The family of this 78-nucleotide RNA from Physeter macrocephalus is "Mammalian CPEB3 ribozyme". The family's consensus secondary structure is taken from published work. It scores 82 bits against the family's covariance model. NCBI's taxonomy places the organism under Eukaryota, Teleostomi, Sarcopterygii, Dipnotetrapodomorpha, Physeter.
RNA sequence: AAAGGAUAGCAGGGGGCUACAGUAGAAGCGUUCACAUUGCAGCCCCUGUCACAUUCUGGUGAAUCUUCGAAUUCUGCU
Numbered sequence: 001a002a003a004g005g006a007u008a009g010c011a012g013g014g015g016g017c018u019a020c021a022g023u024a025g026a027a028g029c030g031u032u033c034a035c036a037u038u039g040c041a042g043c044c045c046c047u048g049u050c051a052c053a054u055u056c057u058g059g060u061g062a063a064u065c066u067u068c069g070a071a072u073u074c075u076g077c078u
Base pairs, nucleotide, nucleotide: 013046014045015044016043017042018041021078022077023076024075025074026073027072028040029039030038051066053064054063055062056061